The family of this 93-nucleotide RNA sequence from Mycoplasmopsis fermentans is "Bacterial small signal recognition particle RNA". Lineage of the source: Bacteria > Mycoplasmatota > Mycoplasmoidales > Mycoplasmopsis > Mycoplasmopsis fermentans. The match comes from Rfam's covariance-model search (47 bits). Rfam classes the family as a non-coding RNA gene.
RNA sequence: UGUAGCGUCAGUAGAACAAUAACCUUGUAACCUGGUCAGGUCAGAGAUGAAGCAGCCAUAUCGAGUAGUGUUGUGUCUAUUGACUUUUUUUAU
Numbered sequence: 001u002g003u004a005g006c007g008u009c010a011g012u013a014g015a016a017c018a019a020u021a022a023c024c025u026u027g028u029a030a031c032c033u034g035g036u037c038a039g040g041u042c043a044g045a046g047a048u049g050a051a052g053c054a055g056c057c058a059u060a061u062c063g064a065g066u067a068g069u070g071u072u073g074u075g076u077c078u079a080u081u082g083a084c085u086u087u088u089u090u091u092a093u
Stems, first nucleotide, its partner, number of pairs: 004089002007086001008083006016074006022066002025063001027061002033058004041050003
Dot-bracket structure: ...((.(((((((..((((((((.(.((....((((....(((....)))....)))).)).).))..))))))...))))))..).))....